This 140-nucleotide RNA sequence from Chthoniobacter flavus belongs to the Rfam family "Group II catalytic intron D1-D4-4". Rfam 15.1 lists 840 matches to the family in 506 species. On this family, see Bonen and Vogel, Trends Genet 2001: "The ins and outs of group II introns". Gene Ontology term of the family: Group II intron splicing. Taxonomically the source falls in Chthoniobacter flavus (Bacteria, Pseudomonadati, Chthoniobacteraceae, Chthoniobacter). Rfam describes the family as follows. Group II introns are found in rRNA, tRNA and mRNA of organelles in fungi, plants and protists, and also in mRNA in bacteria.

[Rfam]
RNA sequence: AUCCGGGUUCCAAUCCCGGCGGGCAACUUCGCUCCAGCCCGAAGCACUGGGAGCGAUUCAGGAGGUAACAAAUGAAUUGAAGUACUACCAGAAAAGGGCCGUGCAAAGCGGUCCAGCGAACCAUGCAGGCCGUAACGCGC
Numbered sequence: 001a002u003c004c005g006g007g008u009u010c011c012a013a014u015c016c017c018g019g020c021g022g023g024c025a026a027c028u029u030c031g032c033u034c035c036a037g038c039c040c041g042a043a044g045c046a047c048u049g050g051g052a053g054c055g056a057u058u059c060a061g062g063a064g065g066u067a068a069c070a071a072a073u074g075a076a077u078u079g080a081a082g083u084a085c086u087a088c089c090a091g092a093a094a095a096g097g098g099c100c101g102u103g104c105a106a107a108g109c110g111g112u113c114c115a116g117c118g119a120a121c122c123a124u125g126c127a128g129g130c131c132g133u134a135a136c137g138c139g140c
Base pairs, nucleotide, nucleotide: 020041021040022039023038024037049089050088052086053085054079055078056077057076058075059074064069096114097113098112099111100110101109116133117132118131